[Rfam]
A member of the RNA family "Small nucleolar RNA snR85" from Saccharomyces uvarum, 181 nucleotides long.
Rfam links the family to the GO terms RNA processing and nucleolus.
A reference for the family is Schattner et al. (2004), "Genome-wide searching for pseudouridylation guide snoRNAs: analysis of the Saccharomyces cerevisiae genome", Nucleic Acids Res.
Rfam's curators put it in the seed alignment.
Taxonomically the source falls in Saccharomyces uvarum (Eukaryota, Dikarya, Ascomycota, Saccharomycetales).
Nucleotides: 181
Base pairs, nucleotide, nucleotide: 004075005074006073007072008071009070010069023059024058025057026056029053030052031051032050089175090174091173092172093171101164103162112122113121127158128157129156132153135150136149137148
Number, partner (000 for none) and nucleotide at each position: 001000c002000a003000c004075u005074a006073g007072c008071a009070c010069a011000u012000a013000u014000g015000u016000c017000a018000a019000a020000u021000u022000c023059c024058u025057a026056a027000u028000u029053a030052a031051c032050g033000u034000u035000a036000u037000a038000u039000u040000u041000a042000u043000u044000a045000u046000c047000c048000g049000u050032c051031g052030u053029u054000u055000c056026u057025u058024a059023g060000a061000g062000c063000c064000g065000u066000a067000a068000u069010u070009g071008u072007g073006c074005u075004g076000a077000u078000a079000u080000c081000a082000a083000a084000c085000u086000c087000c088000a089175g090174g091173g092172a093171a094000g095000g096000a097000c098000a099000c100000a101164c102000a103162g104000c105000a106000a107000g108000c109000g110000a111000u112122u113121g114000c115000u116000g117000g118000g119000c120000c121113c122112a123000c124000c125000u126000c127158g128157c129156g130000c131000c132153c133000c134000u135150g136149g137148c138000a139000u140000c141000u142000u143000u144000c145000u146000c147000c148137g149136c150135c151000a152000c153132g154000g155000g156129c157128g158127u159000g160000u161000c162103c163000g164101g165000g166000c167000c168000u169000u170000c171093u172092u173091c174090c175089c176000a177000u178000a179000c180000c181000c